[Rfam]
Shown here is a 244-nucleotide sequence from Endocarpon pusillum, a member of the family "Small nucleolar RNA snR191". The family's consensus secondary structure was predicted with WAR. The organism belongs to Endocarpon pusillum, within Eukaryota.
Nucleotides: 244
Base pairs, nucleotide, nucleotide: 003075004074005073017062018061019060020059022057024055025054026053028041029040030039031038086164087163089160090159091158092157095117096116097115099113100112101111102110123153124152125151126150130146132144134142135141136140166238167237168236172232173231174230182223183222184221185220187217188216189215190214193204194203195202
Number, partner (000 for none) and nucleotide at each position: 001000u002000u003075c004074c005073a006000u007000c008000g009000c010000u011000c012000a013000g014000u015000c016000a017062a018061g019060g020059c021000u022057c023000c024055u025054u026053u027000u028041u029040g030039c031038a032000a033000c034000a035000u036000c037000c038031u039030g040029c041028a042000a043000u044000u045000u046000c047000c048000a049000a050000u051000g052000a053026a054025a055024g056000a057022g058000c059020g060019c061018c062017u063000g064000u065000u066000a067000c068000a069000g070000c071000u072000u073005u074004g075003g076000u077000a078000c079000a080000u081000u082000g083000a084000c085000c086164u087163g088000u089160g090159c091158u092157u093000g094000c095117c096116g097115c098000u099113u100112u101111u102110g103000c104000c105000u106000g107000g108000u109000g110102u111101a112100a113099a114000u115097g116096u117095g118000g119000u120000u121000c122000u123153g124152g125151a126150u127000c128000u129000a130146c131000c132144u133000g134142c135141c136140g137000u138000c139000u140136u141135g142134g143000a144132a145000a146130g147000u148000c149000u150126g151125u152124c153123c154000u155000c156000a157092a158091a159090g160089c161000c162000a163087u164086g165000g166238g167237u168236g169000u170000c171000u172232c173231g174230u175000u176000u177000g178000a179000g180000u181000u182223g183222a184221g185220a186000u187217u188216g189215c190214u191000u192000u193204c194203g195202c196000u197000u198000g199000u200000u201000u202195g203194c204193g205000u206000u207000c208000c209000u210000g211000c212000a213000u214190a215189g216188c217187a218000c219000c220185u221184c222183u223182c224000u225000u226000a227000g228000u229000a230174a231173c232172g233000u234000u235000c236168c237167a238166c239000a240000c241000a242000a243000u244000u

The literature on the family includes a 2003 paper in RNA by Badis et al., "A snoRNA that guides the two most conserved pseudouridine modifications within rRNA confers a growth advantage in yeast". It is annotated as an H/ACA-box small nucleolar RNA.